[Rfam]
RNA sequence: GGUGAUAAACGCGCAGAUAAUAAGCGGUUCGGACCCGGGGGCGGUACCCGGCGGCUCCACCAAACAUCCCGUCGUUGGGGGAUCAUGGGGCCGAAAUAGGAUCGACGAACGUGUAAAACUGUUGCUUUCACCCGGUGAGGUACCACCGUUAUCGGUCCGAUAAAGCAUAAUUGCCAACGACAAUCGUGCUCCGGUUGCAGUUGCCGCCUAA
Number, nucleotide and partner (000 for none) at each position: 001g132002g131003u130004g129005a128006u000007a000008a000009a000010c000011g000012c000013g122014c121015a120016g119017a000018u000019a000020a000021u000022a000023a000024g000025c111026g110027g000028u000029u108030c107031g106032g000033a000034c000035c051036c050037g049038g048039g047040g000041g000042c000043g000044g000045u000046a000047c039048c038049c037050g036051g035052c093053g092054g091055c090056u089057c088058c087059a000060c000061c000062a000063a000064a000065c000066a000067u000068c000069c000070c000071g000072u000073c000074g000075u000076u000077g000078g000079g000080g000081g000082a000083u000084c000085a000086u000087g058088g057089g056090g055091c054092c053093g052094a000095a000096a000097u000098a000099g000100g000101a000102u000103c000104g000105a000106c031107g030108a029109a000110c026111g025112u000113g000114u000115a000116a000117a000118a000119c016120u015121g014122u013123u000124g000125c000126u000127u000128u005129c004130a003131c002132c001133c148134g147135g146136u145137g000138a000139g000140g000141u000142a000143c000144c000145a136146c135147c134148g133149u000150u000151a000152u000153c000154g000155g000156u000157c000158c000159g000160a000161u000162a000163a000164a000165g000166c000167a000168u000169a000170a000171u000172u000173g000174c000175c000176a000177a000178c000179g000180a000181c000182a000183a000184u000185c000186g000187u000188g000189c000190u000191c000192c000193g000194g000195u000196u000197g000198c000199a000200g000201u000202u000203g000204c000205c000206g000207c000208c000209u000210a000211a000

The family of this 211-nucleotide sequence from Tranquillimonas rosea is "permuted transfer-messenger RNA". Rfam links the family to the GO term RNA catabolic process. Bacterial tmRNA, also known as 10Sa RNA or SsrA, is named for its dual tRNA and mRNA-like properties. Its role is to liberate the mRNA from a stalled ribosome. To accomplish this part of the tmRNA is used as a reading frame that ends in a translation stop signal. The broken mRNA is replaced in the ribosome by the tmRNA and translation of the tmRNA leads to addition of a proteolysis tag to the incomplete protein enabling recognition by a protease. The family's RNA type in Rfam is non-coding RNA gene.